[Rfam]
RNA sequence: AAGAUAUCUCGGUAGGCGAGGCUCCUACAGGGAUAUAGGCUGCUGCCGCGAAAGAUUGGAGACAAUCUGAGCUGGUGAACAGGUUUUGCCGAAACCAAGGCAUAACCUAAUGCAGCUUUUUAUGCCGUGUAGUGCCAAAGCUUGUACGAGGUAGCUU
Numbered sequence: 001a002a003g004a005u006a007u008c009u010c011g012g013u014a015g016g017c018g019a020g021g022c023u024c025c026u027a028c029a030g031g032g033a034u035a036u037a038g039g040c041u042g043c044u045g046c047c048g049c050g051a052a053a054g055a056u057u058g059g060a061g062a063c064a065a066u067c068u069g070a071g072c073u074g075g076u077g078a079a080c081a082g083g084u085u086u087u088g089c090c091g092a093a094a095c096c097a098a099g100g101c102a103u104a105a106c107c108u109a110a111u112g113c114a115g116c117u118u119u120u121u122a123u124g125c126c127g128u129g130u131a132g133u134g135c136c137a138a139a140g141c142u143u144g145u146a147c148g149a150g151g152u153a154g155c156u157u
Base pairs, nucleotide, nucleotide: 005153006152007151008150009149010148011147013098015142016141017140020136021135022134025132026131027130028129029128031126032125039116040115041114042113043112046074048072049071055066056065057064058063082107083106084105085104088101089100090099
The record is a 157-nucleotide sequence from Caldicellulosiruptor bescii, which matches "M-box riboswitch aptamer (ykoK leader)" in Rfam. Rfam describes the family as follows. M-box riboswitch, also know as ykoK leader is described as a metaloregulatory RNA that sense divalent metals and function as a genetic control element of genes related to divalent metal transport in bacteria. It was first reported upstream of the B.subtilis ykoK gene and genes with related functions in other bacteria. The pairing is the family consensus, mapped onto this sequence. Lineage of the source: Bacteria > Bacillati > Caldicellulosiruptorales > Caldicellulosiruptoraceae > Caldicellulosiruptor bescii.